Rfam assigns this 66-nucleotide RNA from Pseudanabaena sp. FACHB-2040 to the family "Cyanobacterial functional RNA 1". Rfam classes the family as a small RNA. It scores 57 bits against the family's covariance model. For this family Rfam cites "Identification of cyanobacterial non-coding RNAs by comparative genome analysis" (Axmann et al., Genome Biol, 2005). The source organism's lineage runs through Bacteria, Cyanophyceae, Pseudanabaenales, Pseudanabaenaceae and Pseudanabaena.

RNA sequence: GCGGAGACGAAAGUUUCCGUUCACUCCUCACACCACACUCCGCCCAAAUCAUUGAUUUGGGCGGUU
Numbered sequence: 001g002c003g004g005a006g007a008c009g010a011a012a013g014u015u016u017c018c019g020u021u022c023a024c025u026c027c028u029c030a031c032a033c034c035a036c037a038c039u040c041c042g043c044c045c046a047a048a049u050c051a052u053u054g055a056u057u058u059g060g061g062c063g064g065u066u
Base pairs, nucleotide, nucleotide: 001020002019003018004017005016006015007014008013041063042062043061044060045059046058047057048056049055